[Rfam]
RNA: Antisense RNA which regulates isiA expression
RNA sequence: GAUAUCCAUAUAUUACCAAUGGAUCGAGAGUGGGAUUUGUUACUAAACGAACUGUUUGAGUUGUCGCAUCAUAAAGCCCAUCGAAAUACAUAGCUUUUGCUGCUAAUAAUAAAGCACCAAAUCCUAAGAAAAGUAGGUGAUGGCCUAAGAUAAUACCUAGCUUUUUUGGAUCAUCCCA
Number, nucleotide and partner (000 for none) at each position: 001g000002a000003u000004a000005u000006c000007c000008a000009u000010a000011u000012a000013u000014u000015a000016c000017c000018a000019a000020u000021g000022g000023a000024u000025c000026g000027a000028g000029a000030g000031u000032g000033g000034g000035a000036u000037u000038u000039g000040u000041u000042a000043c000044u000045a000046a000047a000048c000049g000050a000051a000052c000053u000054g000055u000056u000057u000058g000059a000060g000061u000062u000063g000064u000065c000066g000067c000068a000069u000070c000071a000072u000073a000074a000075a000076g000077c000078c000079c000080a000081u000082c000083g000084a000085a000086a000087u000088a000089c000090a000091u000092a000093g000094c000095u000096u000097u000098u000099g000100c000101u000102g000103c000104u000105a000106a000107u000108a000109a000110u000111a000112a000113a000114g000115c000116a000117c000118c000119a000120a000121a000122u000123c000124c000125u000126a000127a000128g000129a000130a000131a000132a000133g000134u000135a000136g175137g174138u173139g172140a171141u170142g000143g000144c169145c168146u000147a166148a165149g000150a000151u000152a000153a000154u000155a000156c000157c000158u000159a000160g000161c000162u000163u000164u000165u148166u147167u000168g145169g144170a141171u140172c139173a138174u137175c136176c000177c000178a000